Shown here is a 79-nucleotide RNA sequence from Sus scrofa, a member of the family "mir-335 microRNA precursor family". The source organism's lineage runs through Eukaryota, Chordata, Gnathostomata, Mammalia and Sus. The family's consensus secondary structure was predicted with RNAalifold. Rfam 15.1 lists 139 matches to the family in 134 species.

[Rfam]
RNA sequence: UUUUGGGCGGGGGUCAAGAGCAAUAACGAAAAAUGUUUGUCAUAAACCGUUUUUCAUUAUUGCUCCUGACCUCCUCUCA
Numbered sequence: 001u002u003u004u005g006g007g008c009g010g011g012g013g014u015c016a017a018g019a020g021c022a023a024u025a026a027c028g029a030a031a032a033a034u035g036u037u038u039g040u041c042a043u044a045a046a047c048c049g050u051u052u053u054u055c056a057u058u059a060u061u062g063c064u065c066c067u068g069a070c071c072u073c074c075u076c077u078c079a
Stems, first nucleotide, its partner, number of pairs: 005078003009074008018065009028055008036046004